[Rfam]
RNA: Small nucleolar RNA SNORD19
Organism: Clupea harengus
RNA sequence: GAGAUGUGGGAGUGUUACUGAUCAGUCUGAUUGUCAUUGACCACUGAUAAGGCAUCUCAAAAGAACA
Numbered sequence: 001g002a003g004a005u006g007u008g009g010g011a012g013u014g015u016u017a018c019u020g021a022u023c024a025g026u027c028u029g030a031u032u033g034u035c036a037u038u039g040a041c042c043a044c045u046g047a048u049a050a051g052g053c054a055u056c057u058c059a060a061a062a063g064a065a066c067a
Stems, first nucleotide, its partner, number of pairs: 001058004